[Rfam]
Background
A member of the RNA family "Microsporidia small subunit ribosomal RNA" from Chlamydomonas reinhardtii, 529 nucleotides of a longer RNA. Lineage of the source: Eukaryota > Viridiplantae > core chlorophytes > Chlamydomonadaceae > Chlamydomonas. Clan: SSU clan. Its family is annotated with ribosome and structural constituent of ribosome in the Gene Ontology. On this family, see Yusupov et al., Science 2001: "Crystal structure of the ribosome at 5.5 A resolution". A search with the family's covariance model found it, with a score of 748 bits.
RNA sequence: CAGUUAAAAAGCUCGUAGUUGGAUUUCGGGUGGGGUGGUGCGGUCCGCCUCUGGUGUGCACUGCUCUGCUCCACCUUCCUGCCGGGGACGGGCUCCUGGGCUUCACUGUCUGGGACUCGGAGUCGGCGAGGUUACUUUGAGUAAAUUAGAGUGUUCAAAGCAGGCCUACGCUCUGAAUACAUUAGCAUGGAAUAACACGAUAGGACUCUGGCCUAUCUGUUGGUCUGUGGGACCGGAGUAAUGAUUAAGAGGGGUAGUCGGGGGCAUUCGUAUUCCGUUGUCAGAGGUGAAAUUCUUGGAUUUACGGAAGACGAACAUCUGCGAAAGCAUUUGCCAAGGAUACUUUCAUUGAUCAAGAACGAAAGUUGGGGGCUCGAAGACGAUUAGAUACCGUCGUAGUCUCAACCAUAAACGAUGCCGACUAGGGAUUGGCAGAUGUUCUUUUGAUGACUCUGCCAGCACCUUAUGAGAAAUCAAAGUUUUUGGGUUCCGGGGGGAGUAUGGUCGCAAGGCUGAAACUUAAAGGAAU
Numbered sequence: 001c002a003g004u005u006a007a008a009a010a011g012c013u014c015g016u017a018g019u020u021g022g023a024u025u026u027c028g029g030g031u032g033g034g035g036u037g038g039u040g041c042g043g044u045c046c047g048c049c050u051c052u053g054g055u056g057u058g059c060a061c062u063g064c065u066c067u068g069c070u071c072c073a074c075c076u077u078c079c080u081g082c083c084g085g086g087g088a089c090g091g092g093c094u095c096c097u098g099g100g101c102u103u104c105a106c107u108g109u110c111u112g113g114g115a116c117u118c119g120g121a122g123u124c125g126g127c128g129a130g131g132u133u134a135c136u137u138u139g140a141g142u143a144a145a146u147u148a149g150a151g152u153g154u155u156c157a158a159a160g161c162a163g164g165c166c167u168a169c170g171c172u173c174u175g176a177a178u179a180c181a182u183u184a185g186c187a188u189g190g191a192a193u194a195a196c197a198c199g200a201u202a203g204g205a206c207u208c209u210g211g212c213c214u215a216u217c218u219g220u221u222g223g224u225c226u227g228u229g230g231g232a233c234c235g236g237a238g239u240a241a242u243g244a245u246u247a248a249g250a251g252g253g254g255u256a257g258u259c260g261g262g263g264g265c266a267u268u269c270g271u272a273u274u275c276c277g278u279u280g281u282c283a284g285a286g287g288u289g290a291a292a293u294u295c296u297u298g299g300a301u302u303u304a305c306g307g308a309a310g311a312c313g314a315a316c317a318u319c320u321g322c323g324a325a326a327g328c329a330u331u332u333g334c335c336a337a338g339g340a341u342a343c344u345u346u347c348a349u350u351g352a353u354c355a356a357g358a359a360c361g362a363a364a365g366u367u368g369g370g371g372g373c374u375c376g377a378a379g380a381c382g383a384u385u386a387g388a389u390a391c392c393g394u395c396g397u398a399g400u401c402u403c404a405a406c407c408a409u410a411a412a413c414g415a416u417g418c419c420g421a422c423u424a425g426g427g428a429u430u431g432g433c434a435g436a437u438g439u440u441c442u443u444u445u446g447a448u449g450a451c452u453c454u455g456c457c458a459g460c461a462c463c464u465u466a467u468g469a470g471a472a473a474u475c476a477a478a479g480u481u482u483u484u485g486g487g488u489u490c491c492g493g494g495g496g497g498a499g500u501a502u503g504g505u506c507g508c509a510a511g512g513c514u515g516a517a518a519c520u521u522a523a524a525g526g527a528a529u
Stems, first nucleotide, its partner, number of pairs: 001492001003490001011360001013358002018353003251347003254343003258339002263335004269313002273309006280302001284295003318329001321328002365406006375399001379395004417488003420481003424464003429459008468475002494521003503514004